[Rfam]
RNA: mir-9229 microRNA precursor family
RNA sequence: GAGACACCCUUAUGAGGCAAAAUUUGCUUCAGUGGGGUUUUGGUUCUCACUGAGUCUGCCCCCUGAGUUUGUCCCU
Number, nucleotide and partner (000 for none) at each position: 001g075002a000003g073004a072005c071006a070007c000008c000009c067010u066011u065012a064013u000014g062015a000016g060017g059018c058019a057020a000021a000022a055023u054024u000025u000026g000027c000028u000029u053030c052031a051032g050033u049034g048035g047036g046037g044038u043039u000040u000041u000042g000043g038044u037045u000046c036047u035048c034049a033050c032051u031052g030053a029054g023055u022056c000057u019058g018059c017060c016061c000062c014063c000064u012065g011066a010067g009068u000069u000070u006071g005072u004073c003074c000075c001076u000